[Rfam]
RNA: Glycine riboswitch aptamer
Nucleotides: 108
Base pairs, nucleotide, nucleotide: 006103010099011098012097013096020039021038022037023036041088042087043086044084045083048082049081055075056074057073058072059071060070061069062068063067
Number, partner (000 for none) and nucleotide at each position: 001000c002000c003000c004000g005000c006103c007000g008000a009000a010099u011098c012097u013096g014000g015000a016000g017000a018000g019000c020039g021038g022037c023036g024000c025000c026000u027000g028000g029000u030000u031000c032000c033000a034000g035000g036023c037022g038021c039020c040000c041088a042087c043086c044084g045083a046000a047000g048082g049081g050000g051000c052000u053000a054000a055075c056074g057073g058072c059071u060070g061069g062068u063067g064000c065000u066000g067063c068062a069061c070060c071059a072058g073057u074056c075055g076000g077000a078000a079000a080000a081049u082048c083045u084044c085000a086043g087042g088041u089000g090000u091000a092000g093000g094000g095000a096013c097012a098011g099010a100000g101000g102000g103006g104000u105000g106000u107000a108000u